[Rfam]
RNA sequence: GUGCCUCAGGGAUGAAUGAGUCCCUUAAAUUCAUCCAUCUGUUCACUUUGUCAGCGGUCUUUUUGGUUAUUUGCUGAUCAUUAGAGGGUGGAAUAUUU
Numbered sequence: 001g002u003g004c005c006u007c008a009g010g011g012a013u014g015a016a017u018g019a020g021u022c023c024c025u026u027a028a029a030u031u032c033a034u035c036c037a038u039c040u041g042u043u044c045a046c047u048u049u050g051u052c053a054g055c056g057g058u059c060u061u062u063u064u065g066g067u068u069a070u071u072u073g074c075u076g077a078u079c080a081u082u083a084g085a086g087g088g089u090g091g092a093a094u095a096u097u098u
Base pairs, nucleotide, nucleotide: 034092035091036090037089038088039087050078051077052076053075054074055073056072057071
Shown here is a 98-nucleotide RNA from Macleaya cordata, a member of the family "Small nucleolar RNA snoR99". Lineage of the source: Eukaryota > Streptophyta > Tracheophyta > Ranunculales > Macleaya. Rfam 15.1 lists 733 matches to the family in 222 species. It is annotated as an H/ACA-box small nucleolar RNA. It scores 87 bits against the family's covariance model. Pairs were carried over by alignment from the consensus structure, which was predicted with WAR.